[Rfam]
Small nucleolar RNA SNORA69: a 132-nucleotide sequence from Phasianus colchicus. It is annotated as an H/ACA-box small nucleolar RNA. From the family's description: U69 is a member of the H/ACA class of small nucleolar RNAs (snoRNAs) which act as guides in the the modification of uridines to pseudouridines. The match comes from Rfam's covariance-model search (87 bits). Rfam links the family to the GO terms nucleolus and RNA processing. Rfam 15.1 lists 808 matches to the family in 584 species.
RNA sequence: AUAGCAGGCUGCAAUUGCAGUGCUUCAUUCUGUGGGAGUACUGUCAUUUUCCUGCUGAGAGUAAUUCUGUUAAUGCUGUCUUUGGUUUUACCUGCGUGUUGGUGAAACUGUUUGUCCUUAACAUAAACAUCA
Numbered sequence: 001a002u003a004g005c006a007g008g009c010u011g012c013a014a015u016u017g018c019a020g021u022g023c024u025u026c027a028u029u030c031u032g033u034g035g036g037a038g039u040a041c042u043g044u045c046a047u048u049u050u051c052c053u054g055c056u057g058a059g060a061g062u063a064a065u066u067c068u069g070u071u072a073a074u075g076c077u078g079u080c081u082u083u084g085g086u087u088u089u090a091c092c093u094g095c096g097u098g099u100u101g102g103u104g105a106a107a108c109u110g111u112u113u114g115u116c117c118u119u120a121a122c123a124u125a126a127a128c129a130u131c132a
Stems, first nucleotide, its partner, number of pairs: 003056006018043009065126002068123006075116001083110010094099001